Record summary:
This 148-nucleotide RNA from Vibrio mediterranei belongs to the Rfam family "FMN riboswitch aptamer (RFN element)". The family's consensus secondary structure is taken from published work. The sequence is in the family's curated seed alignment.

RNA sequence: UUUUAUUCUCAGGGCGGGGCGAAAUUCCCCACCGGCGGUAAAUCAAUGUUUGAUAAGCCCGCGAGCGCUUAACUUUAUGGAGUUAAGGUCAGCAGAUCUGGUGAGAAUCCAGAGCCGACGGUUAAAGUCCGGAUGGGAGAGGAUAAUG
Numbered sequence: 001u002u003u004u005a006u007u008c009u010c011a012g013g014g015c016g017g018g019g020c021g022a023a024a025u026u027c028c029c030c031a032c033c034g035g036c037g038g039u040a041a042a043u044c045a046a047u048g049u050u051u052g053a054u055a056a057g058c059c060c061g062c063g064a065g066c067g068c069u070u071a072a073c074u075u076u077a078u079g080g081a082g083u084u085a086a087g088g089u090c091a092g093c094a095g096a097u098c099u100g101g102u103g104a105g106a107a108u109c110c111a112g113a114g115c116c117g118a119c120g121g122u123u124a125a126a127g128u129c130c131g132g133a134u135g136g137g138a139g140a141g142g143a144u145a146a147u148g
Stems, first nucleotide, its partner, number of pairs: 003146008017029003031128002033117002035062004057115002065093002097113005119131003